The family of this 437-nucleotide part of an RNA from Lasiosphaeria miniovina is "Ascomycota telomerase RNA". Rfam links the family to the GO terms telomere maintenance via telomerase, telomerase catalytic core complex and telomerase activity. Taxonomically the source falls in Lasiosphaeria (Eukaryota, Dikarya, saccharomyceta, Sordariales). The family's RNA type in Rfam is non-coding RNA gene. The literature on the family includes a 2013 paper in Nucleic Acids Res by Qi et al., "The common ancestral core of vertebrate and fungal telomerase RNAs".
RNA sequence: AUCACACGGAAAGACUUGGCUCGGGCUCGGCUCGUCACCCGCGGUGGCACCUCUGGUUGCCGAGUUUGGCAAGAGCUGCAUUGAGGACGGUAGAUUUCGGCUAGGGAUUUUCUCGGGUCGCGCGGGUUUUGGCAGCCUGUGCGUGUCGGGACGCGGGUGAAUCUGGCUGGCUCGUUGAGAACCGAUGCUUCGAUCCUGGAUAUCCUGGAUGAAGGCGCCGGGGAGCGGGGCCGGUACCGGGACCCAUCUCGAGUUGGUGUCAGAGCUCAGCGCUUGUCUGGUGCCGGAUUCCUUCCCUCGACAGUUCGGAUUCUAGGCUCUUGCGUGAGGGCUUUGCUGUUCGGGGCCAGCCACUUUGAAAGGGACAGGCCUUUUGGAAGGCGGUCUUGGUUGUCCUCUCACCAGAGAUGGUGAGAGGGCAGCCCCUCUUUUUGAGG
Numbered sequence: 001a002u003c004a005c006a007c008g009g010a011a012a013g014a015c016u017u018g019g020c021u022c023g024g025g026c027u028c029g030g031c032u033c034g035u036c037a038c039c040c041g042c043g044g045u046g047g048c049a050c051c052u053c054u055g056g057u058u059g060c061c062g063a064g065u066u067u068g069g070c071a072a073g074a075g076c077u078g079c080a081u082u083g084a085g086g087a088c089g090g091u092a093g094a095u096u097u098c099g100g101c102u103a104g105g106g107a108u109u110u111u112c113u114c115g116g117g118u119c120g121c122g123c124g125g126g127u128u129u130u131g132g133c134a135g136c137c138u139g140u141g142c143g144u145g146u147c148g149g150g151a152c153g154c155g156g157g158u159g160a161a162u163c164u165g166g167c168u169g170g171c172u173c174g175u176u177g178a179g180a181a182c183c184g185a186u187g188c189u190u191c192g193a194u195c196c197u198g199g200a201u202a203u204c205c206u207g208g209a210u211g212a213a214g215g216c217g218c219c220g221g222g223g224a225g226c227g228g229g230g231c232c233g234g235u236a237c238c239g240g241g242a243c244c245c246a247u248c249u250c251g252a253g254u255u256g257g258u259g260u261c262a263g264a265g266c267u268c269a270g271c272g273c274u275u276g277u278c279u280g281g282u283g284c285c286g287g288a289u290u291c292c293u294u295c296c297c298u299c300g301a302c303a304g305u306u307c308g309g310a311u312u313c314u315a316g317g318c319u320c321u322u323g324c325g326u327g328a329g330g331g332c333u334u335u336g337c338u339g340u341u342c343g344g345g346g347c348c349a350g351c352c353a354c355u356u357u358g359a360a361a362g363g364g365a366c367a368g369g370c371c372u373u374u375u376g377g378a379a380g381g382c383g384g385u386c387u388u389g390g391u392u393g394u395c396c397u398c399u400c401a402c403c404a405g406a407g408a409u410g411g412u413g414a415g416a417g418g419g420c421a422g423c424c425c426c427u428c429u430u431u432u433u434g435a436g437g
Stems, first nucleotide, its partner, number of pairs: 241261003244257003263275004